This 189-nucleotide RNA sequence from Pseudomonas cavernae belongs to the Rfam family "Pseudomonas sRNA P27". Taxonomically the source falls in Pseudomonas (Bacteria, Pseudomonadati, Pseudomonadales, Pseudomonadaceae). The match comes from Rfam's covariance-model search (196 bits). The family's RNA type in Rfam is small RNA.
[Rfam]
RNA sequence: CGGGUUUACUCCUGGAUGUUACCGGUUCGUCCAGCCGUAGCUGGGCGACGUUUUGGUGUCUGAUUCGGUAAGGAAUCGGGAGCACCAUCUGCGUAGGCUUGAGGUUUAAGGCUUGCGCCACCUACGGUCUUGGAUAGCCCCCGCCAGGCAGGGACCCCAAUCUUUGGGGUGACGAAGUCGCCUCCGCCA
Numbered sequence: 001c002g003g004g005u006u007u008a009c010u011c012c013u014g015g016a017u018g019u020u021a022c023c024g025g026u027u028c029g030u031c032c033a034g035c036c037g038u039a040g041c042u043g044g045g046c047g048a049c050g051u052u053u054u055g056g057u058g059u060c061u062g063a064u065u066c067g068g069u070a071a072g073g074a075a076u077c078g079g080g081a082g083c084a085c086c087a088u089c090u091g092c093g094u095a096g097g098c099u100u101g102a103g104g105u106u107u108a109a110g111g112c113u114u115g116c117g118c119c120a121c122c123u124a125c126g127g128u129c130u131u132g133g134a135u136a137g138c139c140c141c142c143g144c145c146a147g148g149c150a151g152g153g154a155c156c157c158c159a160a161u162c163u164u165u166g167g168g169g170u171g172a173c174g175a176a177g178u179c180g181c182c183u184c185c186g187c188c189a
Stems, first nucleotide, its partner, number of pairs: 002157006011148004023050002028047008054087006060079007091144003096139004104135010171188001173186002176183001